The record is a 40-nucleotide RNA from Virgibacillus indicus, which matches "Ribosomal protein L19 leader" in Rfam.
The base pairs follow the family's consensus structure, which was predicted with CMfinder.
A reference for the family is Zengel and Lindahl (1994), "Diverse mechanisms for regulating ribosomal protein synthesis in Escherichia coli", Prog Nucleic Acid Res Mol Biol.
The family's RNA type in Rfam is cis-regulatory leader.
[Rfam]
RNA sequence: ACGAUGUUCCGCUGUCACAGAUAAGAGAUAUGAGCAUUGG
Numbered sequence: 001a002c003g004a005u006g007u008u009c010c011g012c013u014g015u016c017a018c019a020g021a022u023a024a025g026a027g028a029u030a031u032g033a034g035c036a037u038u039g040g
Base pairs, nucleotide, nucleotide: 003038004037005036006035007034008033009032013030014029015028016027018025
This family is a putative r-protein leader autoregulatory structure found in B. subtilis and other low-GC Gram-positive bacteria. It is located in the 5' untranslated regions of mRNAs encoding ribosomal protein L19 (rplS).